[Rfam]
Nucleotides: 097
Base pairs, nucleotide, nucleotide: 002096005093006092007091047063048062049061050060051059052058
Number, partner (000 for none) and nucleotide at each position: 001000a002096u003000u004000u005093u006092g007091c008000u009000a010000u011000g012000a013000c014000g015000a016000u017000a018000c019000a020000u021000g022000a023000a024000a025000g026000a027000u028000u029000c030000a031000c032000a033000u034000g035000u036000c037000a038000g039000a040000c041000u042000u043000c044000a045000g046000a047063g048062a049061u050060u051059u052058c053000u054000u055000g056000a057000a058052g059051a060050a061049g062048u063047c064000a065000a066000u067000g068000a069000g070000a071000a072000g073000u074000c075000a076000c077000u078000u079000c080000a081000u082000g083000a084000u085000u086000c087000c088000u089000g090000a091007g092006c093005a094000u095000c096002a097000g
Record summary:
Shown here is a 97-nucleotide sequence from Cuscuta europaea, a member of the family "Small nucleolar RNA R64/Z200 family". Its family is annotated with nucleolus and RNA processing in the Gene Ontology. By type it is a C/D-box small nucleolar RNA. On this family, see Galardi et al., Mol Cell Biol 2002: "Purified box C/D snoRNPs are able to reproduce site-specific 2'-O-methylation of target RNA in vitro". The source organism's lineage runs through Eukaryota, Mesangiospermae, Cuscuteae, Cuscuta and Cuscuta subgen. Cuscuta.